[Rfam]
A member of the RNA family "terC RNA" from Hyphomicrobium facile, 59 nucleotides long. Rfam classes the family as a cis-regulatory element. It scores 63 bits against the family's covariance model.
RNA sequence: UUGCGGGGCCGGGCCCCUCUGGCAGCGCCAUAACGGUGCUGCGAUGUCGGACCGCAUCG
Numbered sequence: 001u002u003g004c005g006g007g008g009c010c011g012g013g014c015c016c017c018u019c020u021g022g023c024a025g026c027g028c029c030a031u032a033a034c035g036g037u038g039c040u041g042c043g044a045u046g047u048c049g050g051a052c053c054g055c056a057u058c059g
Base pairs, nucleotide, nucleotide: 006053007052009050010049011048012047022042023041024040025039026038027037028036029035